A member of the RNA family "Cyano-1 RNA", 71 nucleotides long. The family's consensus secondary structure is taken from published work.
RNA sequence: ACUUGUGUGAGGAGUGCUAAGCGCCUCUUCUGGGUCGAAACAAGGACAGACUCCAGCAACGCGUUUCACUU
Numbered sequence: 001a002c003u004u005g006u007g008u009g010a011g012g013a014g015u016g017c018u019a020a021g022c023g024c025c026u027c028u029u030c031u032g033g034g035u036c037g038a039a040a041c042a043a044g045g046a047c048a049g050a051c052u053c054c055a056g057c058a059a060c061g062c063g064u065u066u067c068a069c070u071u
Base pairs, nucleotide, nucleotide: 019066020065021064022063023062028059029058031055032054033053034051035050036049